[Rfam]
RNA sequence: AGUCACGUAUUAGACGCAAAGCGAACUAUUCUUUCGCCUUUUACUAAAGAAUACCGUGUGUUUGAUACAAAUAGUGACAUACACUUAUUUUUGGAGGAUUUUUCUUCAUUGAAAAAU
Numbered sequence: 001a002g003u004c005a006c007g008u009a010u011u012a013g014a015c016g017c018a019a020a021g022c023g024a025a026c027u028a029u030u031c032u033u034u035c036g037c038c039u040u041u042u043a044c045u046a047a048a049g050a051a052u053a054c055c056g057u058g059u060g061u062u063u064g065a066u067a068c069a070a071a072u073a074g075u076g077a078c079a080u081a082c083a084c085u086u087a088u089u090u091u092u093g094g095a096g097g098a099u100u101u102u103u104c105u106u107c108a109u110u111g112a113a114a115a116a117u
Stems, first nucleotide, its partner, number of pairs: 003077004008067011027053008095117001099116006
Notes:
Shown here is a 117-nucleotide RNA sequence from Cuscuta australis, a member of the family "U5 spliceosomal RNA". The family's consensus secondary structure is taken from published work. U5 RNA is a component of both types of known spliceosome. The precise function of this molecule is unknown, though it is known that the 5' loop is required for splice site selection and p220 binding, and that both the 3' stem-loop and the Sm site are important for Sm protein binding and cap methylation. NCBI's taxonomy places the organism under Eukaryota, Convolvulaceae, Cuscuteae, Cuscuta subgen. Grammica, Cuscuta sect. Cleistogrammica. It is annotated as a spliceosomal small nuclear RNA.